Description
The family of this 121-nucleotide sequence from Poecilia reticulata is "Small nucleolar RNA snoR104". Rfam links the family to the GO terms RNA processing and nucleolus. The source organism's lineage runs through Eukaryota, Neopterygii, Poeciliidae, Poeciliinae and Poecilia.

[Rfam]
RNA sequence: ACGUAUGACAUAUUAAUUUAUGUCAUACGUAAUAAAAAUUACGUAUGACAUAAAUACGUAAUUUAUGUUGAAUGUUGAGCUUUAAGAAUGCUCAACAUUCUUAAAGCUUUAAUUGAGCUAG
Numbered sequence: 001a002c003g004u005a006u007g008a009c010a011u012a013u014u015a016a017u018u019u020a021u022g023u024c025a026u027a028c029g030u031a032a033u034a035a036a037a038a039u040u041a042c043g044u045a046u047g048a049c050a051u052a053a054a055u056a057c058g059u060a061a062u063u064u065a066u067g068u069u070g071a072a073u074g075u076u077g078a079g080c081u082u083u084a085a086g087a088a089u090g091c092u093c094a095a096c097a098u099u100c101u102u103a104a105a106g107c108u109u110u111a112a113u114u115g116a117g118c119u120a121g
Stems, first nucleotide, its partner, number of pairs: 001030003005026007058113002070100008079091002